[Rfam]
Shown here is a 143-nucleotide sequence from Digitaria exilis, a member of the family "MIR6234 microRNA precursor family".
RNA sequence: CCUCUUUCUAUAUGCAAGUGUGUUCCUCUGUUUGACGCUAAAGGGGAUGCUCCAAAGAAGCACUCCGCAAGUGUUGUUGCCUCCUUUUGUAGUAUUCUUACUUUAGCGUCAAGAGACGAACACACUUGUGUGCCGAAAUGGAA
Numbered sequence: 001c002c003u004c005u006u007u008c009u010a011u012a013u014g015c016a017a018g019u020g021u022g023u024u025c026c027u028c029u030g031u032u033u034g035a036c037g038c039u040a041a042a043g044g045g046g047a048u049g050c051u052c053c054a055a056a057g058a059a060g061c062a063c064u065c066c067g068c069a070a071g072u073g074u075u076g077u078u079g080c081c082u083c084c085u086u087u088u089g090u091a092g093u094a095u096u097c098u099u100a101c102u103u104u105a106g107c108g109u110c111a112a113g114a115g116a117c118g119a120a121c122a123c124a125c126u127u128g129u130g131u132g133c134c135g136a137a138a139u140g141g142a143a
Base pairs, nucleotide, nucleotide: 003141004140006138007137009135014129015128016127017126018125019124020123021122022121023120024119025118027116028115029114031113032112033111034110035109036108037107038106039105040104041103042102043101045097046096047095048094049093050092053089054088055087057083060080061079062078063076066073067072

The match comes from Rfam's covariance-model search (96 bits). Rfam 15.1 lists 141 matches to the family in 8 species.